This 73-nucleotide sequence from Spiroplasma melliferum belongs to the Rfam family "tRNA". Pairs were carried over by alignment from the consensus structure, which is taken from published work. By type it is a transfer RNA. Rfam's curators put it in the seed alignment. Lineage of the source: Bacteria > Bacillati > Mollicutes > Spiroplasmataceae > Spiroplasma.
RNA sequence: GGCACUAUAGCCAAGGUGGCUAAGGCAUGGGACUGCAACUCCCCGAUCGUCGGUUCGAAUCCGACUAGUGCCU
Numbered sequence: 001g002g003c004a005c006u007a008u009a010g011c012c013a014a015g016g017u018g019g020c021u022a023a024g025g026c027a028u029g030g031g032a033c034u035g036c037a038a039c040u041c042c043c044c045g046a047u048c049g050u051c052g053g054u055u056c057g058a059a060u061c062c063g064a065c066u067a068g069u070g071c072c073u
Stems, first nucleotide, its partner, number of pairs: 001072007010026003029043004049065005